[Rfam]
The family of this 64-nucleotide RNA from Varanus komodoensis is "mir-155 microRNA precursor family". Rfam links the family to the GO terms miRNA-mediated post-transcriptional gene silencing and RISC complex. The match comes from Rfam's covariance-model search (70 bits). The source organism's lineage runs through Eukaryota, Chordata, Vertebrata, Sauropsida and Varanus.
RNA sequence: UUGUUAAUGCUAAACGUGAUAGGGGUUUUAAAUCUGAUCAACUCCUACAUGUUAGCAUUAAUGG
Numbered sequence: 001u002u003g004u005u006a007a008u009g010c011u012a013a014a015c016g017u018g019a020u021a022g023g024g025g026u027u028u029u030a031a032a033u034c035u036g037a038u039c040a041a042c043u044c045c046u047a048c049a050u051g052u053u054a055g056c057a058u059u060a061a062u063g064g
Stems, first nucleotide, its partner, number of pairs: 004061010020047004025042003
Dot-bracket structure: ...((((((((((......((((.(((............))).))))....))))))))))...